Small nucleolar RNA SNORA4: a 132-nucleotide sequence from Monodelphis domestica. Gene Ontology terms of the family: RNA processing and nucleolus. Its Rfam clan is "SNORA4 clan". The family's RNA type in Rfam is H/ACA-box small nucleolar RNA. Pairs were carried over by alignment from the consensus structure, which was predicted with PFOLD.
RNA sequence: CUUCCCAAACCCUACUUAUCAGGGGAAGGUCUUAUUACCUUUUCCCAGUUCAAAGUAGUUUGGGAGAAAAAUAGACCACACUCCACAAUGAACUACAUUGUUGUAGUCCAUUACUACUUUGUGGCCAACAGU
Numbered sequence: 001c002u003u004c005c006c007a008a009a010c011c012c013u014a015c016u017u018a019u020c021a022g023g024g025g026a027a028g029g030u031c032u033u034a035u036u037a038c039c040u041u042u043u044c045c046c047a048g049u050u051c052a053a054a055g056u057a058g059u060u061u062g063g064g065a066g067a068a069a070a071a072u073a074g075a076c077c078a079c080a081c082u083c084c085a086c087a088a089u090g091a092a093c094u095a096c097a098u099u100g101u102u103g104u105a106g107u108c109c110a111u112u113a114c115u116a117c118u119u120u121g122u123g124g125c126c127a128a129c130a131g132u
Base pairs, nucleotide, nucleotide: 004063005062007060008059012058013057014056015055016054017053021050022049023046024045025044026043027040028039029038030037074126076124077123078122079121080120087112088111089110090109092107093106094105095104096103097102

A search with the family's covariance model found it, with a score of 75 bits. Lineage of the source: Eukaryota > Opisthokonta > Sarcopterygii > Metatheria > Monodelphis.